[Rfam]
RNA sequence: UCUGGCAAUGAUGAUGCACUUGCCCUCACUGAGAACGUUGUUCGCUUAUGAGAGCUGUUUUCUGUACUCAGCAGAGCUGAGCCAGA
Number, nucleotide and partner (000 for none) at each position: 001u086002c085003u084004g083005g082006c081007a000008a000009u000010g000011a000012u000013g000014a000015u000016g000017c000018a000019c000020u000021u000022g000023c000024c000025c000026u000027c000028a000029c000030u000031g000032a000033g000034a000035a000036c000037g000038u000039u000040g000041u000042u000043c000044g000045c000046u000047u000048a000049u000050g000051a000052g000053a000054g000055c000056u000057g000058u000059u000060u000061u000062c000063u000064g000065u000066a000067c000068u000069c000070a000071g000072c000073a000074g000075a000076g000077c000078u000079g000080a000081g006082c005083c004084a003085g002086a001
Small nucleolar RNA SNORD103/SNORD85: an 86-nucleotide sequence from Apteryx australis. Its family is annotated with nucleolus and RNA processing in the Gene Ontology. For this family Rfam cites "RNomics: an experimental approach that identifies 201 candidates for novel, small, non-messenger RNAs in mouse" (Huttenhofer et al., EMBO J, 2001).